[Rfam]
RNA sequence: AUAAUUUGUUGGCAAACCCCAGGAAACUGAGGGACGCAAAGCUAUGGGCCUAAAGCACUUUGUGCAAGGGUUGCCAGGUUGCACUA
Numbered sequence: 001a002u003a004a005u006u007u008g009u010u011g012g013c014a015a016a017c018c019c020c021a022g023g024a025a026a027c028u029g030a031g032g033g034a035c036g037c038a039a040a041g042c043u044a045u046g047g048g049c050c051u052a053a054a055g056c057a058c059u060u061u062g063u064g065c066a067a068g069g070g071u072u073g074c075c076a077g078g079u080u081g082c083a084c085u086a
Stems, first nucleotide, its partner, number of pairs: 012037002017032002020029003040080004045076003048071003055065004

Overview: This 86-nucleotide RNA from Alicyclobacillus sp. SO9 belongs to the Rfam family "c-di-GMP-I riboswitch aptamer". NCBI's taxonomy places the organism under Bacteria, Bacillota, Caryophanales, Alicyclobacillaceae, Alicyclobacillus. Pairs were carried over by alignment from the consensus structure, which is taken from published work.